[Rfam]
RNA sequence: UGAGUGAAUUAGGUAGUUUCAUGUUGUUGGGCCUGGAUUUCUGAACACAACGACAUUAAACCACCCGACUCACGGC
Numbered sequence: 001u002g003a004g005u006g007a008a009u010u011a012g013g014u015a016g017u018u019u020c021a022u023g024u025u026g027u028u029g030g031g032c033c034u035g036g037a038u039u040u041c042u043g044a045a046c047a048c049a050a051c052g053a054c055a056u057u058a059a060a061c062c063a064c065c066c067g068a069c070u071c072a073c074g075g076c
Stems, first nucleotide, its partner, number of pairs: 004073004009068002012065003016061004022055008031046001
The family of this 76-nucleotide sequence from Bos taurus is "mir-196 microRNA precursor family". Pairs were carried over by alignment from the consensus structure, which was predicted with PFOLD. Its family is annotated with RISC complex and gene silencing by miRNA in the Gene Ontology. On this family, see Lagos-Quintana et al., RNA 2003: "New microRNAs from mouse and human". Lineage of the source: Eukaryota > Gnathostomata > Euteleostomi > Pecora > Bos.